A member of the RNA family "ASpks TB sRNA" from Nocardia donostiensis, 75 nucleotides long. Rfam classes the family as an antisense RNA.
RNA sequence: UUUGAUCGAUCCCAGCCACAGCGGCUGCUCGGCCAGGCGUUCGUGUCCGUAGGUGGCCAGCAGCGCCUGCGCCUC
Numbered sequence: 001u002u003u004g005a006u007c008g009a010u011c012c013c014a015g016c017c018a019c020a021g022c023g024g025c026u027g028c029u030c031g032g033c034c035a036g037g038c039g040u041u042c043g044u045g046u047c048c049g050u051a052g053g054u055g056g057c058c059a060g061c062a063g064c065g066c067c068u069g070c071g072c073c074u075c
Stems, first nucleotide, its partner, number of pairs: 014026004032070002038065002044059002047056003